Shown here is an 89-nucleotide RNA from Oceanibaculum pacificum, a member of the family "Glycine riboswitch aptamer".
RNA sequence: CUGAACCUUGCGGGAGAGAUCGGCAAUAGCCGGCGCCGAAGGAGCAAUCCACCCCGGAAACUCUCAGGCAAAAGGACCGCAAGGGAAGG
Numbered sequence: 001c002u003g004a005a006c007c008u009u010g011c012g013g014g015a016g017a018g019a020u021c022g023g024c025a026a027u028a029g030c031c032g033g034c035g036c037c038g039a040a041g042g043a044g045c046a047a048u049c050c051a052c053c054c055c056g057g058a059a060a061c062u063c064u065c066a067g068g069c070a071a072a073a074g075g076a077c078c079g080c081a082a083g084g085g086a087a088g089g
Stems, first nucleotide, its partner, number of pairs: 006084008020033004035069003038065002042063003048058002